[Rfam]
Overview
Rfam assigns this 88-nucleotide RNA sequence from Nocardia seriolae to the family "Glycine riboswitch aptamer".
RNA sequence: UGAGUCGUGGCGGGAGAAGCCUCGGGAACGGGGUACCGAAGGAGCAACCUCCCCGGAAUCUCUCAGGUACAGAUACCGUUUCGACCAG
Numbered sequence: 001u002g003a004g005u006c007g008u009g010g011c012g013g014g015a016g017a018a019g020c021c022u023c024g025g026g027a028a029c030g031g032g033g034u035a036c037c038g039a040a041g042g043a044g045c046a047a048c049c050u051c052c053c054c055g056g057a058a059u060c061u062c063u064c065a066g067g068u069a070c071a072g073a074u075a076c077c078g079u080u081u082c083g084a085c086c087a088g
Stems, first nucleotide, its partner, number of pairs: 006083002009080005020033004035068003038064002042062003048056002
The base pairs follow the family's consensus structure. Rfam links the family to the GO term glycine biosynthetic process.